[Rfam]
RNA sequence: AAUAGUAGAAUGAUAAAUUAAAUUUUUUCUCUUAAUUUUUAGCCUUUUUUCUCUUAAAAAAUUCAGAUUCAACUAAAAAUGCUGAAAAUCAGGAGGAAAAAUUUGAUUUGUCAUUUUCCUAUU
Dot-bracket structure: (((((.(((((((((((((((((((((.(((((.(((((.((..((((...........................))))..)).))))).))))).))))))))))))))))))))).)))))
Numbered sequence: 001a002a003u004a005g006u007a008g009a010a011u012g013a014u015a016a017a018u019u020a021a022a023u024u025u026u027u028u029c030u031c032u033u034a035a036u037u038u039u040u041a042g043c044c045u046u047u048u049u050u051c052u053c054u055u056a057a058a059a060a061a062u063u064c065a066g067a068u069u070c071a072a073c074u075a076a077a078a079a080u081g082c083u084g085a086a087a088a089u090c091a092g093g094a095g096g097a098a099a100a101a102u103u104u105g106a107u108u109u110g111u112c113a114u115u116u117u118c119c120u121a122u123u
Stems, first nucleotide, its partner, number of pairs: 001123005007117021029095005035089005041083002045079004